Shown here is a 61-nucleotide RNA from Ictalurus punctatus, a member of the family "mir-30 microRNA precursor family". Rfam 15.1 lists 3,879 matches to the family in 647 species. On this family, see Lagos-Quintana et al., Science 2001: "Identification of novel genes coding for small expressed RNAs". Gene Ontology terms of the family: gene silencing by miRNA and RISC complex.

Nucleotides: 061
Stems, first nucleotide, its partner, number of pairs: 001059012015047006022040003
Number, partner (000 for none) and nucleotide at each position: 001059u002058g003057u004056a005055a006054a007053c008052a009051u010050c011049c012048u013000a014000c015047a016046c017045u018044c019043u020042c021000a022040g023039c024038u025000g026000g027000a028000g029000c030000g031000c032000a033000g034000c035000c036000g037000a038024g039023g040022c041000c042020g043019g044018g045017a046016g047015u048012g049011g050010g051009a052008u053007g054006u055005u056004u057003g058002c059001g060000c061000u